[Rfam]
RNA: Guanidine-I riboswitch aptamer
RNA sequence: GUGCGGUGCGUCUAGGGUUCCGGCAUUCCUUCCUCGGAAUGUGGCUGGUCCGAGAGACGCACUCCCUGUGAGUUGCAGGGAGACACGGCGGGCCAAAAUCCCGGGAGAA
Numbered sequence: 001g002u003g004c005g006g007u008g009c010g011u012c013u014a015g016g017g018u019u020c021c022g023g024c025a026u027u028c029c030u031u032c033c034u035c036g037g038a039a040u041g042u043g044g045c046u047g048g049u050c051c052g053a054g055a056g057a058c059g060c061a062c063u064c065c066c067u068g069u070g071a072g073u074u075g076c077a078g079g080g081a082g083a084c085a086c087g088g089c090g091g092g093c094c095a096a097a098a099u100c101c102c103g104g105g106a107g108a109a
Base pairs, nucleotide, nucleotide: 007061008060009059010058011057012056015051016050020048021047022045023042024041025040026039027038028037062082063081064080065079066078067077068076069075084104086107090102091101092100